[Rfam]
RNA sequence: GAUAAAAAAGGGAAUGAAGUUCUCCCAUAGUAAUGAUACUAAAACCGCUUAUAUAAGCUGAUGACUUCUGCAUUUUU
Numbered sequence: 001g002a003u004a005a006a007a008a009a010g011g012g013a014a015u016g017a018a019g020u021u022c023u024c025c026c027a028u029a030g031u032a033a034u035g036a037u038a039c040u041a042a043a044a045c046c047g048c049u050u051a052u053a054u055a056a057g058c059u060g061a062u063g064a065c066u067u068c069u070g071c072a073u074u075u076u077u
Stems, first nucleotide, its partner, number of pairs: 010026004016068006047058004

Overview:
The family of this 77-nucleotide RNA sequence from Clostridium sp. CAG:230 is "Fluoride riboswitch aptamer (crcB RNA motif)". The match comes from Rfam's covariance-model search (52 bits).